[Rfam]
RNA: c-di-GMP-I riboswitch aptamer
RNA sequence: UGAAUAAAAAGGCAAACUAUGCGAAAGCAUAGGACGCAAAGCCACGGGUCUAACAAAACUUUUUUUAUGAUCGCCGGGUUGCACAU
Numbered sequence: 001u002g003a004a005u006a007a008a009a010a011g012g013c014a015a016a017c018u019a020u021g022c023g024a025a026a027g028c029a030u031a032g033g034a035c036g037c038a039a040a041g042c043c044a045c046g047g048g049u050c051u052a053a054c055a056a057a058a059c060u061u062u063u064u065u066u067a068u069g070a071u072c073g074c075c076g077g078g079u080u081g082c083a084c085a086u
Base pairs, nucleotide, nucleotide: 012037013036017032018031019030020029021028022027040080041079042078043077045076046075047074048071049070050069055065056064057063058062